[Rfam]
RNA sequence: UUUACCCUGCGUAACUGGCGAAAAGGGGGCGUGGCCAUGGUGGCUGACGGUUGACUGUCAGACCAAGCAUCGGCUGCAAGCCUUUUGUGGAUCACCACAAGGAAGCGCAGGGAUAGACGAGGUUAGGCUUAAGACCGGGCUUUUUUCAGGCUGGUUGUACGCGGAAUCUUGUCACGCCGUUCGCCUGGGCAGCCGUA
Numbered sequence: 001u002u003u004a005c006c007c008u009g010c011g012u013a014a015c016u017g018g019c020g021a022a023a024a025g026g027g028g029g030c031g032u033g034g035c036c037a038u039g040g041u042g043g044c045u046g047a048c049g050g051u052u053g054a055c056u057g058u059c060a061g062a063c064c065a066a067g068c069a070u071c072g073g074c075u076g077c078a079a080g081c082c083u084u085u086u087g088u089g090g091a092u093c094a095c096c097a098c099a100a101g102g103a104a105g106c107g108c109a110g111g112g113a114u115a116g117a118c119g120a121g122g123u124u125a126g127g128c129u130u131a132a133g134a135c136c137g138g139g140c141u142u143u144u145u146u147c148a149g150g151c152u153g154g155u156u157g158u159a160c161g162c163g164g165a166a167u168c169u170u171g172u173c174a175c176g177c178c179g180u181u182c183g184c185c186u187g188g189g190c191a192g193c194c195g196u197a
Base pairs, nucleotide, nucleotide: 005112006111007110008109009108010107011106012105015102016101017185018184019183020182021181087098088097089096090095176190177189178188
Dot-bracket structure: ....((((((((..(([[[[[.................................................................((((....))))..))..))))))))...............................................................(((..]]]]]..))).......